RNA sequence: UGCUCUUUGUGUUCACUGUCUGCCUUGAUGUUGCACCAAAAUUUCAUAAGGCACGCGGUGAAUGCCAAGAGAC
Number, nucleotide and partner (000 for none) at each position: 001u000002g000003c071004u070005c069006u068007u000008u000009g065010u064011g063012u062013u061014c060015a059016c058017u000018g056019u055020c000021u000022g000023c051024c050025u049026u048027g047028a000029u000030g044031u000032u000033g000034c000035a000036c000037c000038a000039a000040a000041a000042u000043u000044u030045c000046a000047u027048a026049a025050g024051g023052c000053a000054c000055g019056c018057g000058g016059u015060g014061a013062a012063u011064g010065c009066c000067a000068a006069g005070a004071g003072a000073c000